[Rfam]
RNA: Plant signal recognition particle RNA
Organism: Glycine soja
RNA sequence: GUCGAGUUGAGUAACAUCAGCUUGUGACCCAAGUGGGGACACCAAGGUAAUGGGACAGGUCUCUGGCUUAGCCAGGUUGGGUUGGUGGCUGCACCAUGCUGCCUGCCCGCUCCAAGUUCAGAGUUGAACUAUGAGAACUGAGUGAAGACACAGGUCUCCUGGUUCCUAGACAAGGGGAUACUGCGUGAGGCUGCCUUCACAGAGCAGCGUUCACCCCUGCCUCUUCACAGUGGAGGGAUUACCGGCUGCUGCACUGUCAGCCCAUAUAACCUUUACUUUUUUUUUUACCUUACAUACACUUUG
Numbered sequence: 001g002u003c004g005a006g007u008u009g010a011g012u013a014a015c016a017u018c019a020g021c022u023u024g025u026g027a028c029c030c031a032a033g034u035g036g037g038g039a040c041a042c043c044a045a046g047g048u049a050a051u052g053g054g055a056c057a058g059g060u061c062u063c064u065g066g067c068u069u070a071g072c073c074a075g076g077u078u079g080g081g082u083u084g085g086u087g088g089c090u091g092c093a094c095c096a097u098g099c100u101g102c103c104u105g106c107c108c109g110c111u112c113c114a115a116g117u118u119c120a121g122a123g124u125u126g127a128a129c130u131a132u133g134a135g136a137a138c139u140g141a142g143u144g145a146a147g148a149c150a151c152a153g154g155u156c157u158c159c160u161g162g163u164u165c166c167u168a169g170a171c172a173a174g175g176g177g178a179u180a181c182u183g184c185g186u187g188a189g190g191c192u193g194c195c196u197u198c199a200c201a202g203a204g205c206a207g208c209g210u211u212c213a214c215c216c217c218u219g220c221c222u223c224u225u226c227a228c229a230g231u232g233g234a235g236g237g238a239u240u241a242c243c244g245g246c247u248g249c250u251g252c253a254c255u256g257u258c259a260g261c262c263c264a265u266a267u268a269a270c271c272u273u274u275a276c277u278u279u280u281u282u283u284u285u286u287a288c289c290u291u292a293c294a295u296a297c298a299c300u301u302u303g
Stems, first nucleotide, its partner, number of pairs: 001040003004023007028037003043303006053293001055291001059288002065281002070277002074273003078269001079263009090253004098249002101246003105242001107237002110235005116228002120224004126165006133158004138153003142149002173218005183210004191202003